Background: A member of the RNA family "mir-877 microRNA precursor family" from Carlito syrichta, 85 nucleotides long. The match comes from Rfam's covariance-model search (80 bits). Its family is annotated with RISC complex and miRNA-mediated post-transcriptional gene silencing in the Gene Ontology. For this family Rfam cites "Many novel mammalian microRNA candidates identified by extensive cloning and RAKE analysis" (Berezikov et al., Genome Res, 2006).
RNA sequence: GUAGAGAAGAUGGCGCAGGGGACAUGCGCUAACACUUAGGGGCUCCUGGACCCUCGAAUAUGUGUCCUCUUCUCCCUCCUCCCAG
Numbered sequence: 001g002u003a004g005a006g007a008a009g010a011u012g013g014c015g016c017a018g019g020g021g022a023c024a025u026g027c028g029c030u031a032a033c034a035c036u037u038a039g040g041g042g043c044u045c046c047u048g049g050a051c052c053c054u055c056g057a058a059u060a061u062g063u064g065u066c067c068u069c070u071u072c073u074c075c076c077u078c079c080u081c082c083c084a085g
Stems, first nucleotide, its partner, number of pairs: 004081003008077002012075002015072001017070010028059001036057002039054004043049002